Nucleotides: 348
Base pairs, nucleotide, nucleotide: 001344002343003342004341005340006339007338008337009336010335011334012314013313014312015311016310017309018308020038021037022036023035024034025033026032027031043332044331045330047329048328049327050326051325052217053216054215055214060250061249065213066212067211068210069209070084071083072082073081074080085099086097087096088095089094100208101207105206106205107202108201109200121149122148123145124144125143129142130141131140132139157175158174159173160172161171162170177197178195179194180193181192182191183190184189221271222270223269224268228262229261231259232258233257241255242254243253244252245251278297279296280295281294282293283292284291285290
Number, partner (000 for none) and nucleotide at each position: 001344u002343g003342g004341g005340u006339a007338a008337a009336c010335u011334g012314g013313a014312u015311g016310a017309u018308c019000g020038c021037a022036u023035g024034g025033u026032g027031c028000u029000g030000u031027g032026c033025a034024c035023c036022a037021u038020g039000a040000g041000g042000a043332a044331a045330g046000u047329c048328c049327g050326g051325g052217c053216u054215c055214c056000g057000c058000a059000g060250g061249g062000c063000a064000a065213g066212g067211a068210u069209g070084c071083c072082g073081g074080a075000u076000a077000a078000c079000g080074u081073c082072c083071g084070g085099c086097g087096u088095a089094g090000g091000u092000a093000a094089c095088u096087a097086u098000a099085g100208g101207g102000a103000g104000a105206g106205u107202g108201c109200a110000a111000c112000a113000g114000a115000a116000a117000c118000a119000u120000u121149c122148c123145g124144c125143c126000g127000a128000a129142a130141c131140g132139g133000g134000u135000a136000a137000u138000g139132c140131c141130g142129u143125g144124g145123u146000a147000a148122g149121g150000u151000u152000g153000a154000a155000a156000u157175g158174g159173u160172g161171a162170g163000g164000u165000a166000a167000g168000a169000g170162c171161u172160c173159a174158c175157c176000g177197g178195c179194a180193u181192c182191g183190u184189g185000g186000a187000g188000a189184c190183a191182u192181g193180a194179u195178g196000g197177c198000c199000g200109u201108g202107u203000a204000a205106a206105c207101c208100c209069c210068a211067u212066c213065c214055g215054g216053a217052g218000c219000a220000a221271g222270a223269c224268u225000a226000a227000g228262a229261u230000a231259g232258g233257c234000a235000u236000a237000a238000a239000a240000c241255g242254c243253g244252a245251c246000g247000g248000c249061c250060c251245g252244u253243c254242g255241c256000a257233g258232c259231c260000g261229g262228u263000a264000g265000g266000u267000a268224a269223g270222u271221c272000g273000c274000u275000u276000g277000a278297a279296g280295c281294a282293g283292u284291u285290a286000g287000c288000a289000a290285u291284a292283g293282c294281u295280g296279u297278u298000c299000u300000a301000g302000a303000u304000g305000g306000a307000u308018g309017a310016u311015c312014g313013u314012c315000a316000a317000a318000u319000a320000c321000a322000g323000a324000a325051c326050c327049c328048g329047g330045c331044u332043u333000a334011u335010a336009g337008u338007u339006u340005g341004c342003c343002c344001a345000u346000u347000u348000u